[Rfam]
RNA sequence: CAUUCAUCCAGAAGGGUGGAGGGAGUAGGCCCUGCGAAACCCUGGCAACCGCCACAGCUUCGGCUGCGGAAAGGUGCUACCUCCUACCUCGCAUACCGCGAGGGAAGAUGAGUG
Numbered sequence: 001c002a003u004u005c006a007u008c009c010a011g012a013a014g015g016g017u018g019g020a021g022g023g024a025g026u027a028g029g030c031c032c033u034g035c036g037a038a039a040c041c042c043u044g045g046c047a048a049c050c051g052c053c054a055c056a057g058c059u060u061c062g063g064c065u066g067c068g069g070a071a072a073g074g075u076g077c078u079a080c081c082u083c084c085u086a087c088c089u090c091g092c093a094u095a096c097c098g099c100g101a102g103g104g105a106a107g108a109u110g111a112g113u114g
Stems, first nucleotide, its partner, number of pairs: 001114008013043005021032003026086004044078004049074002052069002082106001087103006
Annotation
The family of this 114-nucleotide sequence from Longimonas halophila is "SAM riboswitch aptamer (S box leader)". Its family is annotated with regulation of gene expression in the Gene Ontology. Pairs were carried over by alignment from the consensus structure, which is taken from published work.